Record summary: This 125-nucleotide RNA sequence from Rattus norvegicus belongs to the Rfam family "Small nucleolar RNA SNORA77". NCBI's taxonomy places the organism under Eukaryota, Vertebrata, Glires, Rodentia, Rattus. The sequence is in the family's curated seed alignment. About the family: ACA63 (SNORA77) is a member of the H/ACA class of snoRNAs that guide the sites of modification of uridines to pseudouridines. This snoRNA was identified by computational screening and its expression in mouse experimentally verified by Northern blot and primer extension analysis.

[Rfam]
RNA sequence: GCAGAUUCACUCUGCACCUGGCUGUAGCUCCAGUCUGGUGCUUUUUCCAUCUGCCAGAGAAACAAUCCGGGUGCUGUGGCUGCCUCUGCCUGUCAGGGGCAAUACAGCGGCCUGGGGACACAGCC
Numbered sequence: 001g002c003a004g005a006u007u008c009a010c011u012c013u014g015c016a017c018c019u020g021g022c023u024g025u026a027g028c029u030c031c032a033g034u035c036u037g038g039u040g041c042u043u044u045u046u047c048c049a050u051c052u053g054c055c056a057g058a059g060a061a062a063c064a065a066u067c068c069g070g071g072u073g074c075u076g077u078g079g080c081u082g083c084c085u086c087u088g089c090c091u092g093u094c095a096g097g098g099g100c101a102a103u104a105c106a107g108c109g110g111c112c113u114g115g116g117g118a119c120a121c122a123g124c125c
Stems, first nucleotide, its partner, number of pairs: 001054006014041005020035001022033003066116007073108006081101005